The record is an 82-nucleotide sequence from Psilopogon haemacephalus, which matches "Small nucleolar RNA SNORD127" in Rfam. Its family is annotated with RNA processing and nucleolus in the Gene Ontology.

[Rfam]
RNA sequence: GGGCAACAAUGAUGAGAGGAGUUGUAGCUGGAAUGGUGCAUUACUGCGUGGAGACACCAGUCCCUCUAAACUGAGGUUGCCC
Dot-bracket structure: (((((((....................................................................)))))))
The match comes from Rfam's covariance-model search (67 bits). A reference for the family is Yang et al. (2006), "snoSeeker: an advanced computational package for screening of guide and orphan snoRNA genes in the human genome", Nucleic Acids Res. The organism belongs to Psilopogon, within Eukaryota.